[Rfam]
Annotation: Rfam assigns this 226-nucleotide RNA sequence from Shimazuella alba to the family "T-box leader". The base pairs follow the family's consensus structure, which is taken from published work. Rfam describes the family as follows. Uncharged tRNA acts as the effector for transcription antitermination of genes in the T-box leader family. T-boxes are found upstream of many aminoacyl-tRNA synthetase genes and some amino acid biosynthetic genes usually in Gram-positive bacteria. The anticodon of a specific tRNA base pairs to a specifier sequence within the T-box motif, and the NCCA acceptor tail of the tRNA base pairs to a conserved bulge in the T-box antiterminator hairpin. A search with the family's covariance model found it, with a score of 100 bits. Rfam classes the family as a cis-regulatory leader.

RNA sequence: UAAAUUGCUUUGAUGAGGAUAUGCUUUCCUAUAAUGGUGAUAAGAGAGAGGGGCCACCGGCUGAAAACCCCUUCACCCACUGAUUGGCAAGUACCACCUCGGAGCUGAGAUAGGGAACUGUAGUAUCUAUCUCCGGUUACACACCGUUAUAUGUGCUUAUGAGGACUUAUUUUUUAUCGAUAAGUUGAAGUAGGGUGGAACCACGAGACCAACGCUCGUCCCUUUU
Dot-bracket structure: ......((......((((.....((...(.......(((........((((((..............))))))))).....)...)).........))))...))..(((((((...........))))))).(((.......))).................(((((((.........))))))).....((((.......(((((.......)))))))))...